[Rfam]
RNA: c-di-AMP riboswitch aptamer (ydaO/yuaA leader)
RNA sequence: CUGAGCCAACGGUUUAAUUCGGCGGUUUGCCGAAGCGGAGGAACCAUUUUGGGGCGCACCCUAGUAGGGGGGAGAACUCUCACUCCUAGCCCGACAGCUAACUUCGUCAGCUUUGAGAGGAGGCCAU
Numbered sequence: 001c002u003g004a005g006c007c008a009a010c011g012g013u014u015u016a017a018u019u020c021g022g023c024g025g026u027u028u029g030c031c032g033a034a035g036c037g038g039a040g041g042a043a044c045c046a047u048u049u050u051g052g053g054g055c056g057c058a059c060c061c062u063a064g065u066a067g068g069g070g071g072g073a074g075a076a077c078u079c080u081c082a083c084u085c086c087u088a089g090c091c092c093g094a095c096a097g098c099u100a101a102c103u104u105c106g107u108c109a110g111c112u113u114u115g116a117g118a119g120g121a122g123g124c125c126a127u
Base pairs, nucleotide, nucleotide: 011112012111013110014109018034019033020032021031022030023029024028035107036106037105038104039103040102045051046050052092053091054090060068061067062066071086072085073084074083